[Rfam]
c-di-AMP riboswitch aptamer (ydaO/yuaA leader): a 163-nucleotide RNA sequence from Streptomyces laurentii.
RNA sequence: GUUUGGACAUCACCCACCCACCACCCGGCAGGAGCGGGGGACCCAGGUUCUCCGCCGGCUCCGGUGUUCCCGGAUCCGGCUUGGGGUGAAGCCGCGCCACGGCGCGGCCGGGCAUCUCCUGCCCGAACCCGACAGCUCACCUCGUAGGCGGAGGAGAGGACAA
Numbered sequence: 001g002u003u004u005g006g007a008c009a010u011c012a013c014c015c016a017c018c019c020a021c022c023a024c025c026c027g028g029c030a031g032g033a034g035c036g037g038g039g040g041a042c043c044c045a046g047g048u049u050c051u052c053c054g055c056c057g058g059c060u061c062c063g064g065u066g067u068u069c070c071c072g073g074a075u076c077c078g079g080c081u082u083g084g085g086g087u088g089a090a091g092c093c094g095c096g097c098c099a100c101g102g103c104g105c106g107g108c109c110g111g112g113c114a115u116c117u118c119c120u121g122c123c124c125g126a127a128c129c130c131g132a133c134a135g136c137u138c139a140c141c142u143c144g145u146a147g148g149c150g151g152a153g154g155a156g157a158g159g160a161c162a163a
Stems, first nucleotide, its partner, number of pairs: 011150001013148002019032001034145006044083006084130003092107004110124004

Taxonomically the source falls in Streptomyces (Bacteria, Bacillati, Actinomycetota, Actinomycetes).